Rfam assigns this 125-nucleotide RNA sequence from Bucco capensis to the family "Small nucleolar RNA ACA64".
A search with the family's covariance model found it, with a score of 46 bits.
RNA sequence: ACAGUCUGAAAAUCACUUGGGGUCUCCUGUGGCCCCUGGUGCCACAACUGUGCCGACAGCAGAGGAAGCAUUAAACUCAUUGCCCAUGGUAAAGUGUGGGGAGUGAUACCCACGUUCCUAUUAAU
Numbered sequence: 001a002c003a004g005u006c007u008g009a010a011a012a013u014c015a016c017u018u019g020g021g022g023u024c025u026c027c028u029g030u031g032g033c034c035c036c037u038g039g040u041g042c043c044a045c046a047a048c049u050g051u052g053c054c055g056a057c058a059g060c061a062g063a064g065g066a067a068g069c070a071u072u073a074a075a076c077u078c079a080u081u082g083c084c085c086a087u088g089g090u091a092a093a094g095u096g097u098g099g100g101g102a103g104u105g106a107u108a109c110c111c112a113c114g115u116u117c118c119u120a121u122u123a124a125u
Base pairs, nucleotide, nucleotide: 006050008048014041015040016039021034022033023032024031065118067116068115069114071112077106078105079104080103081102085098086097087096
About this RNA: Pairs were carried over by alignment from the consensus structure, which was predicted with WAR. Its family is annotated with nucleolus and RNA processing in the Gene Ontology. NCBI's taxonomy places the organism under Eukaryota, Tetrapoda, Theropoda, Telluraves, Bucco. By type it is an H/ACA-box small nucleolar RNA.